[Rfam]
Small nucleolar RNA Z43: a 108-nucleotide RNA sequence from Ananas comosus. It is annotated as a C/D-box small nucleolar RNA. The base pairs follow the family's consensus structure, which was predicted with PFOLD. It scores 76 bits against the family's covariance model. The organism belongs to Ananas, within Eukaryota. For this family Rfam cites "The high diversity of snoRNAs in plants: identification and comparative study of 120 snoRNA genes from Oryza sativa" (Chen et al., Nucleic Acids Res, 2003).
RNA sequence: AGGCGAUGAUGAAUGCUCUGUGCUUUCCUAGAAGGUCUCGUUCGUCGUAAUGGCUACUUUUUAGCCUUGCCGACCAUCCUGAUAUAUCACCACCCAUAUUCUGAGUCC
Numbered sequence: 001a002g003g004c005g006a007u008g009a010u011g012a013a014u015g016c017u018c019u020g021u022g023c024u025u026u027c028c029u030a031g032a033a034g035g036u037c038u039c040g041u042u043c044g045u046c047g048u049a050a051u052g053g054c055u056a057c058u059u060u061u062u063a064g065c066c067u068u069g070c071c072g073a074c075c076a077u078c079c080u081g082a083u084a085u086a087u088c089a090c091c092a093c094c095c096a097u098a099u100u101c102u103g104a105g106u107c108c
Base pairs, nucleotide, nucleotide: 002107003106004105056068058063